Bacterial RNase P class B: a 465-nucleotide RNA sequence from Ammoniphilus sp. CFH 90114. A reference for the family is Frank and Pace (1998), "Ribonuclease P: unity and diversity in a tRNA processing ribozyme", Annu Rev Biochem. Rfam classes the family as a ribozyme. Its family is annotated with ribonuclease P activity, tRNA processing and dimeric ribonuclease P complex in the Gene Ontology.
[Rfam]
RNA sequence: AAUGGUGAGUAGUUGCGCGGCUGAAUGCCGUGAGGAAAGUCCAGGCUCGCCCAGUGCUGAGAUGCACGGAGUGAUCGUGCCAUUCGCAAGGAUGGGCAGUUGAUAUUAAGUCAACUGACGGCGGUGAAAUCUUGCUAAGUCCUUCAUUGGAUAUGCUGAAAGUAACCUGAAAGUGCCACAGAAACGGGGCCUUGUCUAAAAGGAUGGAACGGGUAAACCCCACGAGCGAGCAACCCAAAUAUUCUCUAUCUUGACAUCAAGGUUCCACCUCAAAUUUGAUAAAAUCAUUUUAUCAAAUUUGACCCGAAGGGUUGAUGUCAAGAUAGGGAAAUGGUAGGGGCACCUUCCUGCGGGAAUUCAACCAAAGGGACGGAUCGGCAUUGCUGAUAGUUAAAUGACUACACCUGUAUAUGUGCGAGAUUGGCAUCGUUUGAGCACAGCAGGAACAAAACCUGGCUUACAGCC
Numbered sequence: 001a002a003u004g005g006u007g008a009g010u011a012g013u014u015g016c017g018c019g020g021c022u023g024a025a026u027g028c029c030g031u032g033a034g035g036a037a038a039g040u041c042c043a044g045g046c047u048c049g050c051c052c053a054g055u056g057c058u059g060a061g062a063u064g065c066a067c068g069g070a071g072u073g074a075u076c077g078u079g080c081c082a083u084u085c086g087c088a089a090g091g092a093u094g095g096g097c098a099g100u101u102g103a104u105a106u107u108a109a110g111u112c113a114a115c116u117g118a119c120g121g122c123g124g125u126g127a128a129a130u131c132u133u134g135c136u137a138a139g140u141c142c143u144u145c146a147u148u149g150g151a152u153a154u155g156c157u158g159a160a161a162g163u164a165a166c167c168u169g170a171a172a173g174u175g176c177c178a179c180a181g182a183a184a185c186g187g188g189g190c191c192u193u194g195u196c197u198a199a200a201a202g203g204a205u206g207g208a209a210c211g212g213g214u215a216a217a218c219c220c221c222a223c224g225a226g227c228g229a230g231c232a233a234c235c236c237a238a239a240u241a242u243u244c245u246c247u248a249u250c251u252u253g254a255c256a257u258c259a260a261g262g263u264u265c266c267a268c269c270u271c272a273a274a275u276u277u278g279a280u281a282a283a284a285u286c287a288u289u290u291u292a293u294c295a296a297a298u299u300u301g302a303c304c305c306g307a308a309g310g311g312u313u314g315a316u317g318u319c320a321a322g323a324u325a326g327g328g329a330a331a332u333g334g335u336a337g338g339g340g341c342a343c344c345u346u347c348c349u350g351c352g353g354g355a356a357u358u359c360a361a362c363c364a365a366a367g368g369g370a371c372g373g374a375u376c377g378g379c380a381u382u383g384c385u386g387a388u389a390g391u392u393a394a395a396u397g398a399c400u401a402c403a404c405c406u407g408u409a410u411a412u413g414u415g416c417g418a419g420a421u422u423g424g425c426a427u428c429g430u431u432u433g434a435g436c437a438c439a440g441c442a443g444g445a446a447c448a449a450a451a452c453c454u455g456g457c458u459u460a461c462a463g464c465c
Base pairs, nucleotide, nucleotide: 004465005464006463007461009402010401011400012399013398014397016032017031018030019029020028021027037459038458039457041456042455043454044453045452046230047229048228049227050226051069052068054067055066056065057064075225076224077223078222079221080095081094082093083092084091085090096119097117098116099115100114101113102112103111104110120220121219123167124166125165131158134156135155139152140151141150173218174217175214176213177212190203191202192201193200234339235338236337343373344372346370347369348368349367374388375387376386377385378384379383404444405443406442407441408440
Dot-bracket structure: ...((((.((((((.((((((.....))))))....[[[.[[[[[(((((((.((((......)))))).....(((((((((((....))))))(((((((((.....)))))))).)((.(((.....(..((...(((........)))..)).)......))).....(((((............((((......))))........)))..))))))))))))))...(((....................................................................................................)))...((.((((.................)))).))((((((...))))))........)))))).(((((...............................))))).......]]]]]]]].).)))